[Rfam]
Shown here is a 102-nucleotide sequence from Thalassobacillus cyri, a member of the family "Purine riboswitch aptamer". It scores 83 bits against the family's covariance model. Pairs were carried over by alignment from the consensus structure, which is taken from published work.

RNA sequence: AAUUACAACCAAACACACCUUCAUAUAUCCUCGAUAAUAGGGUUCGAGAGUCUCUACCGGGAUGCCGUAAAUGUCCUGACUAUGAAGGCGGAUUUCCAAUGA
Numbered sequence: 001a002a003u004u005a006c007a008a009c010c011a012a013a014c015a016c017a018c019c020u021u022c023a024u025a026u027a028u029c030c031u032c033g034a035u036a037a038u039a040g041g042g043u044u045c046g047a048g049a050g051u052c053u054c055u056a057c058c059g060g061g062a063u064g065c066c067g068u069a070a071a072u073g074u075c076c077u078g079a080c081u082a083u084g085a086a087g088g089c090g091g092a093u094u095u096c097c098a099a100u101g102a
Stems, first nucleotide, its partner, number of pairs: 018088008030048005058078007